[Rfam]
RNA sequence: AUGAGAAAUAGGGGAGAGACUACGUAUGUGGCGCCGAAGGAGCAAACAAUUUAUUUUGUGAAUCUCUCAGGCAAAAGAACUCUAUUUUGACG
Number, nucleotide and partner (000 for none) at each position: 001a000002u000003g000004a000005g000006a087007a086008a085009u084010a083011g082012g081013g080014g000015a000016g000017a000018g000019a000020c031021u030022a029023c028024g000025u000026a000027u000028g023029u022030g021031g020032c000033g072034c071035c070036g068037a067038a000039g000040g066041a065042g064043c000044a000045a000046a059047c058048a057049a056050u000051u000052u000053a000054u000055u000056u049057u048058g047059u046060g000061a000062a000063u000064c042065u041066c040067u037068c036069a000070g035071g034072c033073a000074a000075a000076a000077g000078a000079a000080c013081u012082c011083u010084a009085u008086u007087u006088u000089g000090a000091c000092g000